[Rfam]
RNA sequence: CGGUUUUCUGAUUGUCCAUUCGCAUUUCUUGUGUCGUUUCCCCCAUCUGGGGAGCUUGCUUGUGCAAGAGAUGUGCUUGGACAUCAAAAAACUG
Numbered sequence: 001c002g003g004u005u006u007u008c009u010g011a012u013u014g015u016c017c018a019u020u021c022g023c024a025u026u027u028c029u030u031g032u033g034u035c036g037u038u039u040c041c042c043c044c045a046u047c048u049g050g051g052g053a054g055c056u057u058g059c060u061u062g063u064g065c066a067a068g069a070g071a072u073g074u075g076c077u078u079g080g081a082c083a084u085c086a087a088a089a090a091a092c093u094g
Stems, first nucleotide, its partner, number of pairs: 002093006009086004014082005021075014
Record summary:
Rfam assigns this 94-nucleotide RNA sequence from Clonorchis sinensis to the family "mir-219 microRNA precursor family". A search with the family's covariance model found it, with a score of 60 bits. Rfam links the family to the GO terms miRNA-mediated post-transcriptional gene silencing and RISC complex.